[Rfam]
RNA sequence: UUAACUCAAAUUUGUAUAGAGUUGGAAGGUUUGCUAAGUUUGCCGCUAGGGACGCUGUUCCAACUUCUUACAAAUUGGAGUUA
Numbered sequence: 001u002u003a004a005c006u007c008a009a010a011u012u013u014g015u016a017u018a019g020a021g022u023u024g025g026a027a028g029g030u031u032u033g034c035u036a037a038g039u040u041u042g043c044c045g046c047u048a049g050g051g052a053c054g055c056u057g058u059u060c061c062a063a064c065u066u067c068u069u070a071c072a073a074a075u076u077g078g079a080g081u082u083a
Base pairs, nucleotide, nucleotide: 009076010075011074012073013072014071015070016069020065021064022063023062024061025060026059027058029056034050035049038046039045
Background:
Rfam assigns this 83-nucleotide sequence from Bombyx mori to the family "mir-2807 microRNA precursor family". Its family is annotated with RISC complex and miRNA-mediated post-transcriptional gene silencing in the Gene Ontology. The family has 8 seed sequences and 5,120 matches in Rfam 15.1. Pairs were carried over by alignment from the consensus structure, which was predicted with RNAalifold.